[Rfam]
RNA: MIR2629 microRNA precursor family
RNA sequence: UACCGAAAUUUUCCUCGGUAGUUAACUGCAGCCGGUUUAUAAAUUCCUCGGCAGUUAACUGCAGAGGGGAUA
Numbered sequence: 001u002a003c004c005g006a007a008a009u010u011u012u013c014c015u016c017g018g019u020a021g022u023u024a025a026c027u028g029c030a031g032c033c034g035g036u037u038u039a040u041a042a043a044u045u046c047c048u049c050g051g052c053a054g055u056u057a058a059c060u061g062c063a064g065a066g067g068g069g070a071u072a
Stems, first nucleotide, its partner, number of pairs: 012068002015065002018062012